[Rfam]
RNA sequence: UCCCUGGUGGUCCAGUGGGAAAGACUCUGCACUCCCAAUGCAGGGGGCCCAGGUUCAAUCCCUGGUCAGGGAA
Numbered sequence: 001u002c003c004c005u006g007g008u009g010g011u012c013c014a015g016u017g018g019g020a021a022a023g024a025c026u027c028u029g030c031a032c033u034c035c036c037a038a039u040g041c042a043g044g045g046g047g048c049c050c051a052g053g054u055u056c057a058a059u060c061c062c063u064g065g066u067c068a069g070g071g072a073a
Stems, first nucleotide, its partner, number of pairs: 001072007010025003027043005049065005